Small Cajal body specific RNA 6: a 263-nucleotide RNA from Larus smithsonianus. Rfam links the family to the GO terms nucleolus and RNA processing. Rfam's curators write: U88 is small Cajal body specific RNA (scaRNA). scaRNAs are a novel class of small nuclear RNAs which localise to the Cajal bodies. U88 is found associated with both fibrillarin and Gar1p and co-localises with coilin in Cajal bodies. The literature on the family includes a 2001 paper in EMBO J by Huttenhofer et al., "RNomics: an experimental approach that identifies 201 candidates for novel, small, non-messenger RNAs in mouse". The match comes from Rfam's covariance-model search (96 bits). Lineage of the source: Eukaryota > Deuterostomia > Gnathostomata > Sauria > Larus. The family's consensus secondary structure is taken from published work.
RNA sequence: GGUCUGUGAUGAAUAGUAAAAGGUCUGAUUAUCCAAAGACUUGUACUUCCAUGACCGUUUCUCCCAGCAGUUUCUCACCAGUCAUGGCACAGUAAUGGUGUGGCUGGCAGAGCGUUUGCUGACAGCAUGUGAUAUGUUCAGUUCGUGUUAGCCUGCAGUAUCGGAGACAUGACUGGGAUCAGCAUCUGACAGUCUUACUUGAAGGAGUUUGGGGUCUUGGAUUGUUAAAACUGGACACGUCAUCUGACUUUUCUGCUGCGACC
Numbered sequence: 001g002g003u004c005u006g007u008g009a010u011g012a013a014u015a016g017u018a019a020a021a022g023g024u025c026u027g028a029u030u031a032u033c034c035a036a037a038g039a040c041u042u043g044u045a046c047u048u049c050c051a052u053g054a055c056c057g058u059u060u061c062u063c064c065c066a067g068c069a070g071u072u073u074c075u076c077a078c079c080a081g082u083c084a085u086g087g088c089a090c091a092g093u094a095a096u097g098g099u100g101u102g103g104c105u106g107g108c109a110g111a112g113c114g115u116u117u118g119c120u121g122a123c124a125g126c127a128u129g130u131g132a133u134a135u136g137u138u139c140a141g142u143u144c145g146u147g148u149u150a151g152c153c154u155g156c157a158g159u160a161u162c163g164g165a166g167a168c169a170u171g172a173c174u175g176g177g178a179u180c181a182g183c184a185u186c187u188g189a190c191a192g193u194c195u196u197a198c199u200u201g202a203a204g205g206a207g208u209u210u211g212g213g214g215u216c217u218u219g220g221a222u223u224g225u226u227a228a229a230a231c232u233g234g235a236c237a238c239g240u241c242a243u244c245u246g247a248c249u250u251u252u253c254u255g256c257u258g259c260g261a262c263c
Stems, first nucleotide, its partner, number of pairs: 001263004036245001038243001048221004053216002061207004065121006078107009129187001131186003135182001144171006152164002